[Rfam]
RNA sequence: CGCCGUUAUUCACCGGCACGGGCGUCGAGGAAACUCAACGCCCGUGCCUCUAUGUUAGGGGCAAAGUAAUCGAG
Numbered sequence: 001c002g003c004c005g006u007u008a009u010u011c012a013c014c015g016g017c018a019c020g021g022g023c024g025u026c027g028a029g030g031a032a033a034c035u036c037a038a039c040g041c042c043c044g045u046g047c048c049u050c051u052a053u054g055u056u057a058g059g060g061g062c063a064a065a066g067u068a069a070u071c072g073a074g
Base pairs, nucleotide, nucleotide: 003015005013016047017046018045019044020043021042022041023040024039027036028035029034
Rfam assigns this 74-nucleotide RNA sequence from Edwardsiella hoshinae to the family "tpke11". Pairs were carried over by alignment from the consensus structure, which was predicted with WAR. Rfam links the family to the GO term response to temperature stimulus. It is annotated as a small RNA. From the family's description: In Yersinia located in ICR upstream dnaJ (chaperone)gene. Has temperature responsive RNA structure.